[Rfam]
RNA sequence: GGGUUGGGUUAAUUGUUACAGUAUAGCUGUGAAGUGCUAUAUUGUCCUUUCCCCUGCUGAAAGCAAUUGUUUCCUACAAUCUCUGUCUGCUCAUUUCUAUAGUAAGACAGGGACGCUUGGUCUCAAACAU
Numbered sequence: 001g002g003g004u005u006g007g008g009u010u011a012a013u014u015g016u017u018a019c020a021g022u023a024u025a026g027c028u029g030u031g032a033a034g035u036g037c038u039a040u041a042u043u044g045u046c047c048u049u050u051c052c053c054c055u056g057c058u059g060a061a062a063g064c065a066a067u068u069g070u071u072u073c074c075u076a077c078a079a080u081c082u083c084u085g086u087c088u089g090c091u092c093a094u095u096u097c098u099a100u101a102g103u104a105a106g107a108c109a110g111g112g113a114c115g116c117u118u119g120g121u122c123u124c125a126a127a128c129a130u
Stems, first nucleotide, its partner, number of pairs: 003057002006054002018045010082111004087106002090102001

This 130-nucleotide RNA sequence from Pteropus alecto belongs to the Rfam family "Small nucleolar RNA SNORA63". Its family is annotated with RNA processing and nucleolus in the Gene Ontology. It is annotated as an H/ACA-box small nucleolar RNA. The literature on the family includes a 1997 paper in Proc Natl Acad Sci U S A by Mishra and Eliceiri, "Three small nucleolar RNAs that are involved in ribosomal RNA precursor processing". E3 belongs to the H/ACA class of snoRNAs and is involved in the processing of eukaryotic pre-rRNA and has regions of complementarity to 18S rRNA. E3 is encoded in introns in the gene for protein synthesis initiation factor 4AII. The base pairs follow the family's consensus structure, which was predicted with PFOLD.